[Rfam]
Background
The family of this 225-nucleotide part of an RNA from Akanthomyces lecanii is "Ascomycota telomerase RNA". Its Rfam clan is "Telomerase clan". Its family is annotated with telomerase activity, telomerase catalytic core complex and telomere maintenance via telomerase in the Gene Ontology. The match comes from Rfam's covariance-model search (239 bits). The base pairs follow the family's consensus structure. Taxonomically the source falls in Akanthomyces lecanii (Eukaryota, Dikarya, sordariomyceta, Sordariomycetes). Rfam 15.1 lists 475 matches to the family in 456 species.
RNA sequence: AGCCCUACAGUUCACCGUCACUCAUUUUCCGCAAGGAAUGUCUAUCGCAGACCCCUCUACGAGGCCCGGAUGACCGCGCGCGAGCCGCUCCCGAGCCUGCAUCAGGACCUCGCUGUUAGCCGCUGCUGGAUACCUCACCCGCCGCGGGUUCAACGCACCCAUAGCCAGGGGUGCCCGGCCGACCCAGAGGGAAUGCGUGUCGGAACUUAACCCUAAGUAAUCCUU
Numbered sequence: 001a002g003c004c005c006u007a008c009a010g011u012u013c014a015c016c017g018u019c020a021c022u023c024a025u026u027u028u029c030c031g032c033a034a035g036g037a038a039u040g041u042c043u044a045u046c047g048c049a050g051a052c053c054c055c056u057c058u059a060c061g062a063g064g065c066c067c068g069g070a071u072g073a074c075c076g077c078g079c080g081c082g083a084g085c086c087g088c089u090c091c092c093g094a095g096c097c098u099g100c101a102u103c104a105g106g107a108c109c110u111c112g113c114u115g116u117u118a119g120c121c122g123c124u125g126c127u128g129g130a131u132a133c134c135u136c137a138c139c140c141g142c143c144g145c146g147g148g149u150u151c152a153a154c155g156c157a158c159c160c161a162u163a164g165c166c167a168g169g170g171g172u173g174c175c176c177g178g179c180c181g182a183c184c185c186a187g188a189g190g191g192a193a194u195g196c197g198u199g200u201c202g203g204a205a206c207u208u209a210a211c212c213c214u215a216a217g218u219a220a221u222c223c224u225u
Stems, first nucleotide, its partner, number of pairs: 009207003015203003